The family of this 508-nucleotide part of an RNA from uncultured Nosema is "Microsporidia small subunit ribosomal RNA". Rfam's curators put it in the seed alignment.

[Rfam]
RNA sequence: UGACGGAAGAAUACCACAAGGAGUGGAUUGUGCGGCUUAAUUUGACUCAACGCGAGGUAACUUACCAAUAUUUUAUUAUUCAGAGAAGAUAUAUUAUCUGAGGAUGAUAAUAGUGGUGCAUGGCCGUUUUCAAUGGAUGCUGUGAAGUUUUGAUUAAUUUCAACAAGACGUGAGACCCUUUUUUUAUAGACAGACACAAUCAGUGUAGGAAGGAAAGGAUUAAAACAGGUCCGUUAUGCCCUCAGACAUUUUGGGCUGCACGCGCAAUACAAUAGAUAUAUAAUCUUUAUGGGAUAAUAUUUUGUAAGAGAUAUUUGAACUUGGAAUUGCUAGUAAAUUUUAUUAAAUAAGUAGAAUUGAAUGUGUCCCUGUUCUUUGUACACACCGCCCGUCGCUAUCUAAGAUGAUAUGUGUUGUGAAAUUAGUGAAAACUACUUGAACAAUAUGUAUUAGAUCUGAUAUAAGUCGUAACAUGGUUGCUGUUGGAGAACCAUUAGCAGGAUCAUAA
Numbered sequence: 001u002g003a004c005g006g007a008a009g010a011a012u013a014c015c016a017c018a019a020g021g022a023g024u025g026g027a028u029u030g031u032g033c034g035g036c037u038u039a040a041u042u043u044g045a046c047u048c049a050a051c052g053c054g055a056g057g058u059a060a061c062u063u064a065c066c067a068a069u070a071u072u073u074u075a076u077u078a079u080u081c082a083g084a085g086a087a088g089a090u091a092u093a094u095u096a097u098c099u100g101a102g103g104a105u106g107a108u109a110a111u112a113g114u115g116g117u118g119c120a121u122g123g124c125c126g127u128u129u130u131c132a133a134u135g136g137a138u139g140c141u142g143u144g145a146a147g148u149u150u151u152g153a154u155u156a157a158u159u160u161c162a163a164c165a166a167g168a169c170g171u172g173a174g175a176c177c178c179u180u181u182u183u184u185u186a187u188a189g190a191c192a193g194a195c196a197c198a199a200u201c202a203g204u205g206u207a208g209g210a211a212g213g214a215a216a217g218g219a220u221u222a223a224a225a226c227a228g229g230u231c232c233g234u235u236a237u238g239c240c241c242u243c244a245g246a247c248a249u250u251u252u253g254g255g256c257u258g259c260a261c262g263c264g265c266a267a268u269a270c271a272a273u274a275g276a277u278a279u280a281u282a283a284u285c286u287u288u289a290u291g292g293g294a295u296a297a298u299a300u301u302u303u304g305u306a307a308g309a310g311a312u313a314u315u316u317g318a319a320c321u322u323g324g325a326a327u328u329g330c331u332a333g334u335a336a337a338u339u340u341u342a343u344u345a346a347a348u349a350a351g352u353a354g355a356a357u358u359g360a361a362u363g364u365g366u367c368c369c370u371g372u373u374c375u376u377u378g379u380a381c382a383c384a385c386c387g388c389c390c391g392u393c394g395c396u397a398u399c400u401a402a403g404a405u406g407a408u409a410u411g412u413g414u415u416g417u418g419a420a421a422u423u424a425g426u427g428a429a430a431a432c433u434a435c436u437u438g439a440a441c442a443a444u445a446u447g448u449a450u451u452a453g454a455u456c457u458g459a460u461a462u463a464a465g466u467c468g469u470a471a472c473a474u475g476g477u478u479g480c481u482g483u484u485g486g487a488g489a490a491c492c493a494u495u496a497g498c499a500g501g502a503u504c505a506u507a508a
Stems, first nucleotide, its partner, number of pairs: 001382002003379003007376007016366002020330001022328003025270001027268008035259002041056004065254004070249002075108006087099004112242002115240004121236001122234001123230003126226004133171003138166001139148003150163004177218004181188001191209001194206004274286004291320001296315007336358008387472001390468002393465001396461004402455001405452013420437002423434004477500006484493003